Shown here is a 93-nucleotide sequence from Megasphaera geminata, a member of the family "pan motif". Pairs were carried over by alignment from the consensus structure, which is taken from published work. Taxonomically the source falls in Megasphaera geminata (Bacteria, Bacillati, Veillonellales, Megasphaera). The match comes from Rfam's covariance-model search (39 bits). The family's RNA type in Rfam is cis-regulatory element.

RNA sequence: UGGGCAUUAUCCCGAGGGAAGUGUACCGGCUGAUAGGGGAAUUUACGUUAUGCAAAUACGACUUGUAUCUCAUAAAGAGAACGAGAACGGAGG
Numbered sequence: 001u002g003g004g005c006a007u008u009a010u011c012c013c014g015a016g017g018g019a020a021g022u023g024u025a026c027c028g029g030c031u032g033a034u035a036g037g038g039g040a041a042u043u044u045a046c047g048u049u050a051u052g053c054a055a056a057u058a059c060g061a062c063u064u065g066u067a068u069c070u071c072a073u074a075a076a077g078a079g080a081a082c083g084a085g086a087a088c089g090g091a092g093g
Base pairs, nucleotide, nucleotide: 001028002027003026004024005023006022007021008020010019011018059089060088062085063084064083065082066081068080069079070078